The record is an 80-nucleotide RNA from Naja naja, which matches "Small nucleolar RNA snR60/Z15/Z230/Z193/J17" in Rfam. Rfam classes the family as a C/D-box small nucleolar RNA. Taxonomically the source falls in Naja (Eukaryota, Chordata, Tetrapoda, Bifurcata).
RNA sequence: AGGAUGCUUGUGAUGAAAACAUAGUUCAGCAGAUAAUCUCUGAUGAACUCCUUGUCUUUCGCUCCUAUCUGAUGCAUCCU
Number, nucleotide and partner (000 for none) at each position: 001a000002g000003g000004a077005u076006g075007c074008u000009u000010g000011u000012g000013a000014u000015g000016a000017a000018a000019a000020c000021a000022u000023a000024g000025u000026u000027c000028a000029g000030c000031a000032g000033a000034u000035a000036a000037u000038c000039u000040c000041u000042g000043a000044u000045g000046a000047a000048c000049u000050c000051c000052u000053u000054g000055u000056c000057u000058u000059u000060c000061g000062c000063u000064c000065c000066u000067a000068u000069c000070u000071g000072a000073u000074g007075c006076a005077u004078c000079c000080u000

Gene Ontology terms of the family: RNA processing and nucleolus.